[Rfam]
RNA sequence: AUGAAAUCAAAACACGAGCCUCAUAUAAUCUUGGGAAUAUGGCCCAUAAGUUUCUACCCAGUUACCGUAAAUGACUGGACUAUGCAGGAUAGUGAACAAAAC
Numbered sequence: 001a002u003g004a005a006a007u008c009a010a011a012a013c014a015c016g017a018g019c020c021u022c023a024u025a026u027a028a029u030c031u032u033g034g035g036a037a038u039a040u041g042g043c044c045c046a047u048a049a050g051u052u053u054c055u056a057c058c059c060a061g062u063u064a065c066c067g068u069a070a071a072u073g074a075c076u077g078g079a080c081u082a083u084g085c086a087g088g089a090u091a092g093u094g095a096a097c098a099a100a101a102c
Stems, first nucleotide, its partner, number of pairs: 019087001022084004029049001032046004058078007

Purine riboswitch aptamer: a 102-nucleotide RNA sequence. The base pairs follow the family's consensus structure, which is taken from published work.